The record is an 85-nucleotide RNA from Lysinibacillus odysseyi, which matches "pan motif" in Rfam. Taxonomically the source falls in Lysinibacillus odysseyi (Bacteria, Bacillota, Caryophanales, Lysinibacillus). A search with the family's covariance model found it, with a score of 60 bits.
[Rfam]
Nucleotides: 085
Stems, first nucleotide, its partner, number of pairs: 002027002004024005010019002053081003056077005062072003
Number, partner (000 for none) and nucleotide at each position: 001000u002027g003026g004024a005023c006022a007021g008020u009000a010019u011018c012000c013000u014000u015000u016000g017000u018011g019010a020008a021007c022006u023005g024004u025000a026003c027002c028000u029000g030000c031000u032000a033000u034000a035000c036000c037000c038000a039000a040000u041000u042000u043000u044000a045000u046000g047000a048000a049000g050000a051000g052000u053081c054080u055079g056077c057076c058075u059074u060073g061000a062072u063071c064070u065000a066000c067000u068000u069000u070064a071063g072062a073060c074059a075058g076057g077056g078000a079055c080054g081053g082000a083000a084000g085000a